[Rfam]
RNA sequence: GAGACACCCUUAUGAGGUAAGACUUGCUUCAGUGGGUCUUUGAUGUUCACUGAGUCUGCCCCUGAGUGUGUCCCU
Numbered sequence: 001g002a003g004a005c006a007c008c009c010u011u012a013u014g015a016g017g018u019a020a021g022a023c024u025u026g027c028u029u030c031a032g033u034g035g036g037u038c039u040u041u042g043a044u045g046u047u048c049a050c051u052g053a054g055u056c057u058g059c060c061c062c063u064g065a066g067u068g069u070g071u072c073c074c075u
Base pairs, nucleotide, nucleotide: 001074003072004071005070006069007068009066010065011064012063014061016060017059018058019057021056022055023054029053030052031051032050033049034048035047036046
Dot-bracket structure: (.(((((.((((.(.((((.(((.....((((((((.........)))))))))))))))).)))).))))).).
Notes:
The family of this 75-nucleotide RNA from Cnephaeus nilssonii is "mir-9229 microRNA precursor family". It scores 78 bits against the family's covariance model. Rfam 15.1 lists 27,225 matches to the family in 9 species. The family's consensus secondary structure was predicted with RNAalifold.